[Rfam]
RNA sequence: AGCACUAAGGUUUUGGUUUUAGAACUUUAGGUCUUUGCCAAAGACCUAAAGUUCUAAAACCAAAACCUUAGUGCU
Numbered sequence: 001a002g003c004a005c006u007a008a009g010g011u012u013u014u015g016g017u018u019u020u021a022g023a024a025c026u027u028u029a030g031g032u033c034u035u036u037g038c039c040a041a042a043g044a045c046c047u048a049a050a051g052u053u054c055u056a057a058a059a060c061c062a063a064a065a066c067c068u069u070a071g072u073g074c075u
Stems, first nucleotide, its partner, number of pairs: 001075005007069020028048006
RNA: mir-9/mir-79 microRNA precursor family
Organism: Ceratopteris richardii